[Rfam]
RNA sequence: UGCUUUAUACAAAGGUAUAAGGGUAAUGGAUUGUUGUCAAUACUUUAUUGAUAAUUUCUAUCAUUAAGUAUAGG
Numbered sequence: 001u002g003c004u005u006u007a008u009a010c011a012a013a014g015g016u017a018u019a020a021g022g023g024u025a026a027u028g029g030a031u032u033g034u035u036g037u038c039a040a041u042a043c044u045u046u047a048u049u050g051a052u053a054a055u056u057u058c059u060a061u062c063a064u065u066a067a068g069u070a071u072a073g074g
Base pairs, nucleotide, nucleotide: 003022004021005020006019007018008017009016010015053069056067057066
RT-6 RNA: a 74-nucleotide RNA. The family's RNA type in Rfam is small RNA.